Source information: The family of this 126-nucleotide RNA from Perca fluviatilis is "Small nucleolar RNA SNORA65". A search with the family's covariance model found it, with a score of 86 bits. U65 belongs to the H/ACA class of snoRNAs which are thought to guide the sites of modification of uridines to pseudouridines. Pairs were carried over by alignment from the consensus structure, which was predicted with RNAalifold. For this family Rfam cites "RNomics: an experimental approach that identifies 201 candidates for novel, small, non-messenger RNAs in mouse" (Huttenhofer et al., EMBO J, 2001).

RNA sequence: CCCGCCACUAUGCCUGUCAGUCAGUGACGGAGUAUAAUCCAGUGGAGGCUCAGAGUGACCCGGCUUUAGGAAACAGGGCUGCCCCGAACUAAUGGACAACUCUGUGCCGUAAAGUCUGGAACAAAU
Numbered sequence: 001c002c003c004g005c006c007a008c009u010a011u012g013c014c015u016g017u018c019a020g021u022c023a024g025u026g027a028c029g030g031a032g033u034a035u036a037a038u039c040c041a042g043u044g045g046a047g048g049c050u051c052a053g054a055g056u057g058a059c060c061c062g063g064c065u066u067u068a069g070g071a072a073a074c075a076g077g078g079c080u081g082c083c084c085c086g087a088a089c090u091a092a093u094g095g096a097c098a099a100c101u102c103u104g105u106g107c108c109g110u111a112a113a114g115u116c117u118g119g120a121a122c123a124a125a126u
Base pairs, nucleotide, nucleotide: 005045006044007043008042009041018032022029060119061118062117063116064114065113066112067111069108070107074104075103076102077101078100083095084094